[Rfam]
RNA sequence: UAUAAUCUUCAGGGCAGGGUGAAACUCCCGACCGGCGGUAUAGUCCGCGAGUCGAUCACUUAGAUCGAUUGAUCCGGUGUGAUUCCGGAGCCGACAGUAUAGUCUGGAUGCGAGAAGAUGGUA
Numbered sequence: 001u002a003u004a005a006u007c008u009u010c011a012g013g014g015c016a017g018g019g020u021g022a023a024a025c026u027c028c029c030g031a032c033c034g035g036c037g038g039u040a041u042a043g044u045c046c047g048c049g050a051g052u053c054g055a056u057c058a059c060u061u062a063g064a065u066c067g068a069u070u071g072a073u074c075c076g077g078u079g080u081g082a083u084u085c086c087g088g089a090g091c092c093g094a095c096a097g098u099a100u101a102g103u104c105u106g107g108a109u110g111c112g113a114g115a116a117g118a119u120g121g122u123a
Stems, first nucleotide, its partner, number of pairs: 003121001005119006017029003031103002033093002035048004043091002051069003073089005095106003
A member of the RNA family "FMN riboswitch aptamer (RFN element)" from Tindallia californiensis, 123 nucleotides long. The base pairs follow the family's consensus structure, which is taken from published work. NCBI's taxonomy places the organism under Bacteria, Bacillota, Peptostreptococcales, Tindalliaceae, Tindallia.